[Rfam]
RNA: GcvB RNA
RNA sequence: ACUUCCUGAGCCGGAACGAAAAGAUUUCUGGAAACGUGCGAGAGAUCGCAGACUUUUGGAGAGCUUUUGGCUUGUGGUCGUGAUGUUGUGUUUGCAAUUUUGAUCUGACCUUUGCAGAUCAAGCUUUUAAUUCCUGUAGAUUUACCCUGUCUGUCCAAGUGAUUUUAUGUAGCACCGCAAAUUGCGGUGCUUUUUUUU
Numbered sequence: 001a002c003u004u005c006c007u008g009a010g011c012c013g014g015a016a017c018g019a020a021a022a023g024a025u026u027u028c029u030g031g032a033a034a035c036g037u038g039c040g041a042g043a044g045a046u047c048g049c050a051g052a053c054u055u056u057u058g059g060a061g062a063g064c065u066u067u068u069g070g071c072u073u074g075u076g077g078u079c080g081u082g083a084u085g086u087u088g089u090g091u092u093u094g095c096a097a098u099u100u101u102g103a104u105c106u107g108a109c110c111u112u113u114g115c116a117g118a119u120c121a122a123g124c125u126u127u128u129a130a131u132u133c134c135u136g137u138a139g140a141u142u143u144a145c146c147c148u149g150u151c152u153g154u155c156c157a158a159g160u161g162a163u164u165u166u167a168u169g170u171a172g173c174a175c176c177g178c179a180a181a182u183u184g185c186g187g188u189g190c191u192u193u194u195u196u197u198u
Base pairs, nucleotide, nucleotide: 009072010071011070012069015068016067021066022065023064025062026061027060028059029058030057031056032055033054101121102120103119104118105117106116107115138170140168141167171191172190173189174188175187176186177185178184